[Rfam]
RNA sequence: GGGGGUCAGCGCAGGCCAGGGAACUCGGCAAAUUAGCCCCGUAUCUUCGGAAGAAGGGGUGCCUGUGGACCUGGGCAGAAACCUGGGUCCAUAGGUCGCAGUGCCUAGAGGGACCUGACUGUUUAAUAAAAACAUAGCUCACCGCUAGCCUGUAAAGGUUUGUACGGUGGGUGAAUCCUGGCCACUGGCGGUCCGUGAACCCCGGGUCCAACCGGGCGAAGCGCCGCUGAAGGCCGGGAGUAACUCUGACUCUCUUAACGGGAGUAUCUCGCCUAGGAAAACAUAAAAAUUCAAAAAGAUAUUAAGUAUGAAAUAGAGCUUAUUAAAAAAAGAAAACCUUAAAAAAAAUCGCAAUUAUUGAUUCAUACUUAACUGAAAGGCGGGAGCUCCCGGGAGAAAGGUAGCCAAAUGCCUUGCCGGGUAAGUUCCGGCGCGCAUGAACGGAUCAACGAGGUCCCUACUGUCCCGGCCUGCGCCCCCGUGAAUCUAUAAGCUGGUUCACAGUCCAGCAA
Numbered sequence: 001g002g003g004g005g006u007c008a009g010c011g012c013a014g015g016c017c018a019g020g021g022a023a024c025u026c027g028g029c030a031a032a033u034u035a036g037c038c039c040c041g042u043a044u045c046u047u048c049g050g051a052a053g054a055a056g057g058g059g060u061g062c063c064u065g066u067g068g069a070c071c072u073g074g075g076c077a078g079a080a081a082c083c084u085g086g087g088u089c090c091a092u093a094g095g096u097c098g099c100a101g102u103g104c105c106u107a108g109a110g111g112g113a114c115c116u117g118a119c120u121g122u123u124u125a126a127u128a129a130a131a132a133c134a135u136a137g138c139u140c141a142c143c144g145c146u147a148g149c150c151u152g153u154a155a156a157g158g159u160u161u162g163u164a165c166g167g168u169g170g171g172u173g174a175a176u177c178c179u180g181g182c183c184a185c186u187g188g189c190g191g192u193c194c195g196u197g198a199a200c201c202c203c204g205g206g207u208c209c210a211a212c213c214g215g216g217c218g219a220a221g222c223g224c225c226g227c228u229g230a231a232g233g234c235c236g237g238g239a240g241u242a243a244c245u246c247u248g249a250c251u252c253u254c255u256u257a258a259c260g261g262g263a264g265u266a267u268c269u270c271g272c273c274u275a276g277g278a279a280a281a282c283a284u285a286a287a288a289a290u291u292c293a294a295a296a297a298g299a300u301a302u303u304a305a306g307u308a309u310g311a312a313a314u315a316g317a318g319c320u321u322a323u324u325a326a327a328a329a330a331a332g333a334a335a336a337c338c339u340u341a342a343a344a345a346a347a348a349u350c351g352c353a354a355u356u357a358u359u360g361a362u363u364c365a366u367a368c369u370u371a372a373c374u375g376a377a378a379g380g381c382g383g384g385a386g387c388u389c390c391c392g393g394g395a396g397a398a399a400g401g402u403a404g405c406c407a408a409a410u411g412c413c414u415u416g417c418c419g420g421g422u423a424a425g426u427u428c429c430g431g432c433g434c435g436c437a438u439g440a441a442c443g444g445a446u447c448a449a450c451g452a453g454g455u456c457c458c459u460a461c462u463g464u465c466c467c468g469g470c471c472u473g474c475g476c477c478c479c480c481g482u483g484a485a486u487c488u489a490u491a492a493g494c495u496g497g498u499u500c501a502c503a504g505u506c507c508a509g510c511a512a
Stems, first nucleotide, its partner, number of pairs: 001480004010475008019466003036060005044051002061096015097101001109459007116451002120134003137172008145162001148159004175446004180235003185232002187228005194223003201216005236254006255400001416432006493510005
The record is a 512-nucleotide part of an RNA from Fervidicoccus fontis, which matches "Archaeal large subunit ribosomal RNA" in Rfam.